Small Cajal body specific RNA 6: a 277-nucleotide RNA from Varanus komodoensis.
Rfam 15.1 lists 1,309 matches to the family in 627 species.
Rfam links the family to the GO terms nucleolus and RNA processing.

RNA sequence: GGUCAGUGAUGAGAAGAGAAAAGUCUGAUUGCACUAGUGAAUUGCACACUCAUUACUUUCACAGCUCCCAGCAGUUUCUUUCCUGCCACCCAUCCACGCUCCAGUAAUGCUGUGAGGUACUAUGAGGCUGCUGAUAUCAUUGUGGAUUAAGUUGGUCCACGCUCCUGUAGUAUAAGGGGUCUGGUACUGACUGUCAUCCAACAGCACCAGUGAAGGAGCUGUCAGUUCUGGGAUGUGACUUAAAAUGUGCAUGAUCUUUAGUUUUCAAGCUGAGACC
Numbered sequence: 001g002g003u004c005a006g007u008g009a010u011g012a013g014a015a016g017a018g019a020a021a022a023g024u025c026u027g028a029u030u031g032c033a034c035u036a037g038u039g040a041a042u043u044g045c046a047c048a049c050u051c052a053u054u055a056c057u058u059u060c061a062c063a064g065c066u067c068c069c070a071g072c073a074g075u076u077u078c079u080u081u082c083c084u085g086c087c088a089c090c091c092a093u094c095c096a097c098g099c100u101c102c103a104g105u106a107a108u109g110c111u112g113u114g115a116g117g118u119a120c121u122a123u124g125a126g127g128c129u130g131c132u133g134a135u136a137u138c139a140u141u142g143u144g145g146a147u148u149a150a151g152u153u154g155g156u157c158c159a160c161g162c163u164c165c166u167g168u169a170g171u172a173u174a175a176g177g178g179g180u181c182u183g184g185u186a187c188u189g190a191c192u193g194u195c196a197u198c199c200a201a202c203a204g205c206a207c208c209a210g211u212g213a214a215g216g217a218g219c220u221g222u223c224a225g226u227u228c229u230g231g232g233a234u235g236u237g238a239c240u241u242a243a244a245a246u247g248u249g250c251a252u253g254a255u256c257u258u259u260a261g262u263u264u265u266c267a268a269g270c271u272g273a274g275a276c277c
Stems, first nucleotide, its partner, number of pairs: 001277004037258001039256001041255003047232001050231003065218004069133007088118003095114004099109001142199001144198001145195003158184001161181001163179004
Rfam's curators write: U88 is small Cajal body specific RNA (scaRNA). scaRNAs are a novel class of small nuclear RNAs which localise to the Cajal bodies. U88 is found associated with both fibrillarin and Gar1p and co-localises with coilin in Cajal bodies.
For this family Rfam cites "Cajal body-specific small nuclear RNAs: a novel class of 2'-O-methylation and pseudouridylation guide RNAs" (Darzacq et al., EMBO J, 2002).